Overview:
Shown here is a 131-nucleotide sequence from Ruminiclostridium sufflavum, a member of the family "FMN riboswitch aptamer (RFN element)". The base pairs follow the family's consensus structure, which is taken from published work. It scores 114 bits against the family's covariance model. Rfam links the family to the GO term FMN binding.
RNA sequence: ACGUAUCUUCGGGGCAGGGUGCAAUUCCCUACCGGCGGUAAUGUGCAUAUUAUAUGCAUUAGCCCGCGAGCGAAAGCAGACAUGGUGAGAUUCCGUGGCCGACAGUACAGUCUGGAUGAAAGAAGAUUGAC
Number, nucleotide and partner (000 for none) at each position: 001a000002c000003g000004u000005a127006u126007c125008u124009u123010c122011g000012g000013g000014g000015c000016a000017g029018g028019g027020u000021g000022c000023a000024a000025u000026u000027c019028c018029c017030u000031a111032c110033c101034g100035g067036c066037g065038g064039u000040a000041a000042u000043g000044u000045g000046c000047a000048u000049a000050u000051u000052a000053u000054a000055u000056g000057c000058a000059u000060u000061a000062g099063c098064c038065c037066g036067c035068g000069a000070g077071c076072g000073a000074a000075a000076g071077c070078a000079g000080a000081c097082a096083u095084g094085g093086u000087g000088a000089g000090a000091u000092u000093c085094c084095g083096u082097g081098g063099c062100c034101g033102a000103c114104a113105g112106u000107a000108c000109a000110g032111u031112c105113u104114g103115g000116a000117u000118g000119a000120a000121a000122g010123a009124a008125g007126a006127u005128u000129g000130a000131c000